The record is a 167-nucleotide sequence from Sharpea azabuensis, which matches "Lysine riboswitch aptamer" in Rfam.
Its family is annotated with lysine biosynthetic process in the Gene Ontology.
Pairs were carried over by alignment from the consensus structure, which is taken from published work.
Taxonomically the source falls in Sharpea (Bacteria, Bacillota, Erysipelotrichia, Erysipelotrichales).
RNA sequence: UGCCUAAAUAGAGGCGCGGGUGCUAAGAAGACAGUAUCAAUGUUUACAGACAGGUAUUGUUGGAGGAGAAACCGCCGAAGGUUGAAUGAGGCUGUAAACUUGUUUUUCCUGGUGAUUUAGAGAAUAUCUACUUCACUGUCACAGGAAUGUGGAGUGCUAUUGAACUU
Numbered sequence: 001u002g003c004c005u006a007a008a009u010a011g012a013g014g015c016g017c018g019g020g021u022g023c024u025a026a027g028a029a030g031a032c033a034g035u036a037u038c039a040a041u042g043u044u045u046a047c048a049g050a051c052a053g054g055u056a057u058u059g060u061u062g063g064a065g066g067a068g069a070a071a072c073c074g075c076c077g078a079a080g081g082u083u084g085a086a087u088g089a090g091g092c093u094g095u096a097a098a099c100u101u102g103u104u105u106u107u108c109c110u111g112g113u114g115a116u117u118u119a120g121a122g123a124a125u126a127u128c129u130a131c132u133u134c135a136c137u138g139u140c141a142c143a144g145g146a147a148u149g150u151g152g153a154g155u156g157c158u159a160u161u162g163a164a165c166u167u
Stems, first nucleotide, its partner, number of pairs: 007161005016075004021070001023068002030061008079110003084105007111137005118130004139152005